RNA sequence: CCCUUGAGUAGAAGCGUUCAGCACACAGGCCCCGCGCCUGUGUUGCCCGGAAAUUGCUCAGUUU
Numbered sequence: 001c002c003c004u005u006g007a008g009u010a011g012a013a014g015c016g017u018u019c020a021g022c023a024c025a026c027a028g029g030c031c032c033c034g035c036g037c038c039u040g041u042g043u044u045g046c047c048c049g050g051a052a053a054u055u056g057c058u059c060a061g062u063u064u
Stems, first nucleotide, its partner, number of pairs: 005060006015049001018051002021046003024042007
Rfam assigns this 64-nucleotide RNA to the family "Xanthine riboswitch aptamer (NMT1 RNA)".
The sequence is in the family's curated seed alignment.
Its family is annotated with purine nucleobase binding in the Gene Ontology.
On this family, see Yu and Breaker, RNA 2020: "A bacterial riboswitch class senses xanthine and uric acid to regulate genes associated with purine oxidation".